Rfam assigns this 68-nucleotide RNA from Acipenser ruthenus to the family "mir-367 microRNA precursor family". Taxonomically the source falls in Acipenser (Eukaryota, Deuterostomia, Gnathostomata, Acipenserini). Rfam 15.1 lists 541 matches to the family in 513 species. Pairs were carried over by alignment from the consensus structure, which was predicted with RNAalifold.
[Rfam]
RNA sequence: CCUCUACCGAUGCUAUUGUGCAACUCUGUUAUUUUAAGAUUGGAAUUGCACUUUAGCAAUGGUUGUGG
Numbered sequence: 001c002c003u004c005u006a007c008c009g010a011u012g013c014u015a016u017u018g019u020g021c022a023a024c025u026c027u028g029u030u031a032u033u034u035u036a037a038g039a040u041u042g043g044a045a046u047u048g049c050a051c052u053u054u055a056g057c058a059a060u061g062g063u064u065g066u067g068g
Base pairs, nucleotide, nucleotide: 006063007062008061009060011058012057013056014055015054019050020049021048022047023046025044026043027042028041